This 298-nucleotide sequence from Mizuhopecten yessoensis belongs to the Rfam family "Metazoan signal recognition particle RNA". Rfam describes the family as follows. The signal recognition particle (SRP) is a universally conserved ribonucleoprotein. It is involved in the co-translational targeting of proteins to membranes. The eukaryotic SRP consists of a 300-nucleotide 7S RNA and six proteins: SRPs 72, 68, 54, 19, 14, and 9. Archaeal SRP consists of a 7S RNA and homologues of the eukaryotic SRP19 and SRP54 proteins. Eukaryotic and archaeal 7S RNAs have very similar secondary structures, as represented by this family. Eight helical elements fold into the Alu and S domains, separated by a long linker region. The Alu domain is thought to mediate the peptide chain elongation retardation function of the SRP. The universally conserved helix which interacts with the SRP54 M domain mediates signal sequence recognition. In eukaryotes and archaea, the SRP19-helix 6 complex is thought to be involved in SRP assembly and stabilises helix 8 for SRP54 binding. The Signal Recognition Particle Database (SRPDB) provides compilations of SRP components, with phylogenetic data and structural illustrations. Many sequences below the threshold for this family are clearly closely related, but are most likely to be SRP RNA derived pseudogenes. The human genome in particular is known to contain a large amount of SRP RNA related sequence, including Alu repeats. While the threshold of this family is set high so as to minimise the number of hits to such regions, it is likely that some remain. The family's RNA type in Rfam is non-coding RNA gene. The family's consensus secondary structure is taken from published work. It scores 270 bits against the family's covariance model. The organism belongs to Mizuhopecten, within Eukaryota.
RNA sequence: GCUGGGAGUUGUGGCGUGCUCCUGUAAUCCAGGUACUUGGAGGCCGAGGUUGGAGGACGGUUUGAGGGUGGGGGUUCUACCCUCCGGUGCUCUGUGUCGAUAGGGCGUCCGCGCUAAGUCCGGUAUCAAUAUGGCCACUUUGGGGGAGCCCAGAGUGACCAGGUUGUCUAAGGAGGGACGAAUCGGCCCAGGGUGGAAACACAGCAGGCAGAAGUCCCCGUGUCGGACAGUAGUGGGAUCGCGCCCUUGAAUAGGUGCCGGUUGGUAGCCCGCCCAAUACAAUUGAACCCAAUCUUUU
Numbered sequence: 001g002c003u004g005g006g007a008g009u010u011g012u013g014g015c016g017u018g019c020u021c022c023u024g025u026a027a028u029c030c031a032g033g034u035a036c037u038u039g040g041a042g043g044c045c046g047a048g049g050u051u052g053g054a055g056g057a058c059g060g061u062u063u064g065a066g067g068g069u070g071g072g073g074g075u076u077c078u079a080c081c082c083u084c085c086g087g088u089g090c091u092c093u094g095u096g097u098c099g100a101u102a103g104g105g106c107g108u109c110c111g112c113g114c115u116a117a118g119u120c121c122g123g124u125a126u127c128a129a130u131a132u133g134g135c136c137a138c139u140u141u142g143g144g145g146g147a148g149c150c151c152a153g154a155g156u157g158a159c160c161a162g163g164u165u166g167u168c169u170a171a172g173g174a175g176g177g178a179c180g181a182a183u184c185g186g187c188c189c190a191g192g193g194u195g196g197a198a199a200c201a202c203a204g205c206a207g208g209c210a211g212a213a214g215u216c217c218c219c220g221u222g223u224c225g226g227a228c229a230g231u232a233g234u235g236g237g238a239u240c241g242c243g244c245c246c247u248u249g250a251a252u253a254g255g256u257g258c259c260g261g262u263u264g265g266u267a268g269c270c271c272g273c274c275c276a277a278u279a280c281a282a283u284u285g286a287a288c289c290c291a292a293u294c295u296u297u298u
Stems, first nucleotide, its partner, number of pairs: 001044003004023006028041003046296008058285005066275007077268005084261006091255005097249001102247007109237002112235005118228009127166004132161003136157009167173002175218005184211001186209003193202003